Clostridiales-1 RNA: a 174-nucleotide RNA sequence from Firmicutes bacterium AF22-6AC. Lineage of the source: Bacteria > Bacillati > Bacillota.
Nucleotides: 174
Base pairs, nucleotide, nucleotide: 001174002173003172004171005170006169007168010070011069012068013067016063017062018061019060020059021058022057023056024055025054026053027052029051030050031049032048033046035044036043037042074130075129076128077127078126079125080124081123084120085119086118091113092112093110094109095108096107097106098105099104132165133164134163135162136161137160138159143155144154145153146152
Number, partner (000 for none) and nucleotide at each position: 001174g002173u003172g004171c005170a006169a007168u008000a009000g010070a011069u012068u013067u014000u015000c016063u017062a018061a019060g020059u021058u022057c023056a024055u025054a026053a027052g028000c029051u030050c031049g032048c033046g034000g035044a036043u037042g038000c039000u040000u041000g042037c043036a044035u045000a046033c047000g048032g049031c050030g051029a052027c053026u054025u055024a056023u057022g058021a059020a060019c061018u062017u063016a064000a065000g066000a067013a068012a069011a070010u071000c072000g073000c074130a075129c076128c077127u078126a079125c080124a081123u082000g083000a084120g085119g086118a087000a088000g089000a090000a091113g092112c093110g094109a095108u096107u097106u098105g099104c100000g101000u102000c103000a104099g105098c106097a107096a108095a109094u110093c111000a112092g113091c114000g115000g116000a117000a118086u119085c120084c121000g122000a123081a124080u125079g126078u127077a128076g129075g130074u131000a132165g133164a134163a135162u136161u137160g138159u139000g140000g141000a142000a143155g144154c145153a146152g147000c148000g149000u150000a151000g152146c153145u154144g155143c156000g157000g158000a159138a160137c161136a162135a163134u164133u165132c166000g167000u168007a169006u170005u171004g172003c173002a174001c